[Rfam]
RNA sequence: UAAUAACAAAUUUUUUGAUUUCGUAUAAUUUCGAGGAUAAGGCUCGAUAGUUUCUACCGACUAGCCGUAAAUUAGUCGACUACGAGAUAUAGUUAUAUUGGU
Numbered sequence: 001u002a003a004u005a006a007c008a009a010a011u012u013u014u015u016u017g018a019u020u021u022c023g024u025a026u027a028a029u030u031u032c033g034a035g036g037a038u039a040a041g042g043c044u045c046g047a048u049a050g051u052u053u054c055u056a057c058c059g060a061c062u063a064g065c066c067g068u069a070a071a072u073u074a075g076u077c078g079a080c081u082a083c084g085a086g087a088u089a090u091a092g093u094u095a096u097a098u099u100g101g102u
Stems, first nucleotide, its partner, number of pairs: 018088008029049001031047005058078007